[Rfam]
RNA sequence: GUUCUUUGAGGUGGACAAUUUCGUGGCAUCCACACGCCGAUGGUAUUGACAGGGGAAACCCGAGAGAUGCAGGAGCACGCCACGCCUGCCAAAGAAC
Number, nucleotide and partner (000 for none) at each position: 001g097002u096003u095004c094005u093006u092007u091008g090009a000010g000011g033012u032013g031014g030015a029016c000017a000018a000019u000020u000021u000022c000023g000024u082025g081026g080027c079028a000029u015030c014031c013032a012033c011034a000035c064036g000037c055038c054039g000040a000041u000042g000043g000044u000045a000046u000047u000048g000049a000050c000051a000052g000053g000054g038055g037056a000057a000058a000059c000060c000061c000062g000063a000064g035065a000066g000067a000068u000069g089070c088071a087072g086073g085074a000075g000076c000077a000078c000079g027080c026081c025082a024083c000084g000085c073086c072087u071088g070089c069090c008091a007092a006093a005094g004095a003096a002097c001
Record summary:
Shown here is a 97-nucleotide sequence, a member of the family "skipping-rope RNA". The base pairs follow the family's consensus structure, which is taken from published work. Rfam classes the family as a small RNA.